[Rfam]
This 134-nucleotide RNA from Protea cynaroides belongs to the Rfam family "MIR397 microRNA precursor family". The organism belongs to Protea, within Eukaryota. The base pairs follow the family's consensus structure, which was predicted with WAR.
RNA sequence: AAGAAAAACAUGAUUGAGUGCAGUGCUGGUGAAACUGGCCACCCUGCAUAAAUAAACACACAAUGGGUAGAGACAAUGAACAAAGAGGGAUGGGAAUGAAGUUGUCAUCAACGCUGCACUCAAUGAUGCUUUUG
Numbered sequence: 001a002a003g004a005a006a007a008a009c010a011u012g013a014u015u016g017a018g019u020g021c022a023g024u025g026c027u028g029g030u031g032a033a034a035c036u037g038g039c040c041a042c043c044c045u046g047c048a049u050a051a052a053u054a055a056a057c058a059c060a061c062a063a064u065g066g067g068u069a070g071a072g073a074c075a076a077u078g079a080a081c082a083a084a085g086a087g088g089g090a091u092g093g094g095a096a097u098g099a100a101g102u103u104g105u106c107a108u109c110a111a112c113g114c115u116g117c118a119c120u121c122a123a124u125g126a127u128g129c130u131u132u133u134g
Base pairs, nucleotide, nucleotide: 006131007130009128010127011126013124014123015122016121017120018119019118020117021116022115023114024113025112027110028109030107031106032105